Rfam assigns this 68-nucleotide sequence from Paenibacillus dendrobii to the family "Pistol ribozyme".
The family's consensus secondary structure is taken from published work.
The match comes from Rfam's covariance-model search (39 bits).

RNA sequence: UCCCGACAUAUCGGGAUUGAGCCUUAAGCCUAGAGCGUUAACCGCUGACAUUGAGCGGUUAGGUGGCA
Numbered sequence: 001u002c003c004c005g006a007c008a009u010a011u012c013g014g015g016a017u018u019g020a021g022c023c024u025u026a027a028g029c030c031u032a033g034a035g036c037g038u039u040a041a042c043c044g045c046u047g048a049c050a051u052u053g054a055g056c057g058g059u060u061a062g063g064u065g066g067c068a
Stems, first nucleotide, its partner, number of pairs: 001016004007033001021067003028036001038062008